The family of this 111-nucleotide sequence from Arabidopsis lyrata is "Small nucleolar RNA snoR97".
It is annotated as an H/ACA-box small nucleolar RNA.
For this family Rfam cites "Experimental RNomics: identification of 140 candidates for small non-messenger RNAs in the plant Arabidopsis thaliana" (Marker et al., Curr Biol, 2002).
The family has 7 seed sequences and 862 matches in Rfam 15.1.
The organism belongs to Arabidopsis lyrata, within Eukaryota.
RNA sequence: CUUGUAUCUUAGUGCUUGUAGUCUGAAAAAACUCAUAUAUUCUCAGUGUUCUCAUCAGCUUCCGUCUCUUUUUUAUCCAUGGGACUAGAGUUAAACAAGAACACUACAUUU
Dot-bracket structure: ............................................(((((((.....(((((...((((............))))...)))))......)))))))......